[Rfam]
RNA sequence: UAAAUCCUGCGAUGUACGUUUCGAUUUCUAUGUCGUUUUGAACCAAUGACUGUUUCUAGGGAGACCUACAUUCCUGCGCGGCUGACAUGCCCUCGAAAAGGGACUUCAAAAGCGCCGGUGCGGACACCCACCUGCGAGAGCGGGUUUGAAACGCAAAAUCGGACGGCAUAUGCGGGUUUUUU
Numbered sequence: 001u002a003a004a005u006c007c008u009g010c011g012a013u014g015u016a017c018g019u020u021u022c023g024a025u026u027u028c029u030a031u032g033u034c035g036u037u038u039u040g041a042a043c044c045a046a047u048g049a050c051u052g053u054u055u056c057u058a059g060g061g062a063g064a065c066c067u068a069c070a071u072u073c074c075u076g077c078g079c080g081g082c083u084g085a086c087a088u089g090c091c092c093u094c095g096a097a098a099a100g101g102g103a104c105u106u107c108a109a110a111a112g113c114g115c116c117g118g119u120g121c122g123g124a125c126a127c128c129c130a131c132c133u134g135c136g137a138g139a140g141c142g143g144g145u146u147u148g149a150a151a152c153g154c155a156a157a158a159u160c161g162g163a164c165g166g167c168a169u170a171u172g173c174g175g176g177u178u179u180u181u182u
Base pairs, nucleotide, nucleotide: 002180003179004178006176007175008174009173010172011171012169013168014167015166017165018164019163034153035152036151037150039148040147041146042145043144044143059129060128061127063125065123066122070119073118074117076115077114078113079112085106090102091101092100093099
6S / SsrS RNA: a 182-nucleotide RNA from Paenibacillus thalictri. The source organism's lineage runs through Bacteria, Bacillati, Bacilli, Paenibacillaceae and Paenibacillus. By type it is a non-coding RNA gene. A reference for the family is Wassarman and Storz (2000), "6S RNA regulates E. coli RNA polymerase activity", Cell.